mir-9195 microRNA precursor family: an 87-nucleotide RNA sequence from Myotis lucifugus. Its family is annotated with RISC complex and miRNA-mediated post-transcriptional gene silencing in the Gene Ontology. The base pairs follow the family's consensus structure, which was predicted with RNAalifold. The match comes from Rfam's covariance-model search (91 bits). The organism belongs to Myotis, within Eukaryota.
RNA sequence: AGAGGCCCUCUGUGGCCCAGGUGGAACACUUGCCUUGUCGCCGUGGUGACAAAGCAAACAUUCCGCCAGGCCGCUCAUGCUGCCCGC
Numbered sequence: 001a002g003a004g005g006c007c008c009u010c011u012g013u014g015g016c017c018c019a020g021g022u023g024g025a026a027c028a029c030u031u032g033c034c035u036u037g038u039c040g041c042c043g044u045g046g047u048g049a050c051a052a053a054g055c056a057a058a059c060a061u062u063c064c065g066c067c068a069g070g071c072c073g074c075u076c077a078u079g080c081u082g083c084c085c086g087c
Base pairs, nucleotide, nucleotide: 004084005083006082012074013073014072015071016070017069020067021066022065023064024063025062026061030057031056032055033054037050038049039048040047041046